[Rfam]
RNA sequence: UGGAGGUUGAUGCGUCCCUCCCGCCGUGAGCGAGGGACACAUUGAGUAAAGAACCGGGCAGAAAUCGGGGGCCUGGGUGGCGAAGC
Numbered sequence: 001u002g003g004a005g006g007u008u009g010a011u012g013c014g015u016c017c018c019u020c021c022c023g024c025c026g027u028g029a030g031c032g033a034g035g036g037a038c039a040c041a042u043u044g045a046g047u048a049a050a051g052a053a054c055c056g057g058g059c060a061g062a063a064a065u066c067g068g069g070g071g072c073c074u075g076g077g078u079g080g081c082g083a084a085g086c
Stems, first nucleotide, its partner, number of pairs: 002021005054076006
Dot-bracket structure: .(((((..........)))))................................((((((...........))))))..........
Rfam assigns this 86-nucleotide RNA sequence to the family "RAGATH-28 RNA". The sequence is in the family's curated seed alignment.